[Rfam]
Source information:
Rfam assigns this 122-nucleotide sequence from Panax ginseng to the family "MIR6135 microRNA precursor family". Rfam links the family to the GO terms miRNA-mediated post-transcriptional gene silencing and RISC complex.

RNA sequence: AUUAAGUUCAUUUUUACGUAAGUUGGUCAAUUGGCCAAUAGAGUGCUGACACGCAAGCGAGACUCUAUGUAUAUCAAUAUUCUAUUGAUCAAUUGACCAAUUUAUCAAAAAAUAAACUUCAU
Numbered sequence: 001a002u003u004a005a006g007u008u009c010a011u012u013u014u015u016a017c018g019u020a021a022g023u024u025g026g027u028c029a030a031u032u033g034g035c036c037a038a039u040a041g042a043g044u045g046c047u048g049a050c051a052c053g054c055a056a057g058c059g060a061g062a063c064u065c066u067a068u069g070u071a072u073a074u075c076a077a078u079a080u081u082c083u084a085u086u087g088a089u090c091a092a093u094u095g096a097c098c099a100a101u102u103u104a105u106c107a108a109a110a111a112a113u114a115a116a117c118u119u120c121a122u
Base pairs, nucleotide, nucleotide: 001122002121004119005118006117007116008115011112012111013110014109018105019104020103021102022101023100024099025098026097027096028095029094030093031092032091033090034089036087037086038085039084040083041082042081043080044079045078047076048075049074051072054069055068
The base pairs follow the family's consensus structure, which was predicted with RNAalifold.